The record is a 45-nucleotide RNA from Frankia torreyi, which matches "L31-Actinobacteria ribosomal protein leader" in Rfam. Taxonomically the source falls in Frankia (Bacteria, Bacillati, Actinomycetota, Frankiaceae).
RNA sequence: ACGGCUCCGGUUCACGCCCUCCAUCCGGACGGCGACCCGGCGGCC
Numbered sequence: 001a002c003g004g005c006u007c008c009g010g011u012u013c014a015c016g017c018c019c020u021c022c023a024u025c026c027g028g029a030c031g032g033c034g035a036c037c038c039g040g041c042g043g044c045c
Stems, first nucleotide, its partner, number of pairs: 003045003007040004015034004020029003
The base pairs follow the family's consensus structure, which is taken from published work. Its Rfam clan is "Ribosomal Protein L31 Leader clan". Rfam classes the family as a cis-regulatory leader.